[Rfam]
RNA: Mammalian CPEB3 ribozyme
Organism: Alligator sinensis
RNA sequence: CUUGCAGUCCUCCAUAGCAGAAGUGCUCACAGCGUGACUGUGUCAAAUUCCAAUGAAUCUGCGAAUUCUGCU
Numbered sequence: 001c002u003u004g005c006a007g008u009c010c011u012c013c014a015u016a017g018c019a020g021a022a023g024u025g026c027u028c029a030c031a032g033c034g035u036g037a038c039u040g041u042g043u044c045a046a047a048u049u050c051c052a053a054u055g056a057a058u059c060u061g062c063g064a065a066u067u068c069u070g071c072u
Stems, first nucleotide, its partner, number of pairs: 005040005016072007023035003044061002047058004